[Rfam]
Rfam assigns this 84-nucleotide RNA from Inquilinus limosus to the family "chrB-a RNA".
The family's consensus secondary structure is taken from published work.
Rfam 15.1 lists 347 matches to the family in 339 species.

RNA sequence: CGCAAGGGGUCAUCCGCGACGUCCCCGUGAGGCGGCAGCCCAAAGAUCGCGUCCAUGUUUCCUCAUCGAGGGAUGGACGUCAUG
Numbered sequence: 001c002g003c004a005a006g007g008g009g010u011c012a013u014c015c016g017c018g019a020c021g022u023c024c025c026c027g028u029g030a031g032g033c034g035g036c037a038g039c040c041c042a043a044a045g046a047u048c049g050c051g052u053c054c055a056u057g058u059u060u061c062c063u064c065a066u067c068g069a070g071g072g073a074u075g076g077a078c079g080u081c082a083u084g
Base pairs, nucleotide, nucleotide: 006026007025008024009023049080050079051078052077053076054075

It is annotated as a cis-regulatory element.